[Rfam]
The family of this 69-nucleotide RNA sequence from Bactrocera dorsalis is "mir-2 microRNA precursor family". The base pairs follow the family's consensus structure, which was predicted with PFOLD. The literature on the family includes a 2001 paper in Science by Lee and Ambros, "An extensive class of small RNAs in Caenorhabditis elegans". It scores 65 bits against the family's covariance model.
RNA sequence: AAUCUCACAAAGUGGUUGUGAAAUGCUCUAUUUGAAACUGCAUAUCACAGCCAGCUUUGAUGAGCUUAG
Numbered sequence: 001a002a003u004c005u006c007a008c009a010a011a012g013u014g015g016u017u018g019u020g021a022a023a024u025g026c027u028c029u030a031u032u033u034g035a036a037a038c039u040g041c042a043u044a045u046c047a048c049a050g051c052c053a054g055c056u057u058u059g060a061u062g063a064g065c066u067u068a069g
Stems, first nucleotide, its partner, number of pairs: 005063003008059005013053009024044002
Annotation: Its family is annotated with miRNA-mediated post-transcriptional gene silencing and RISC complex in the Gene Ontology.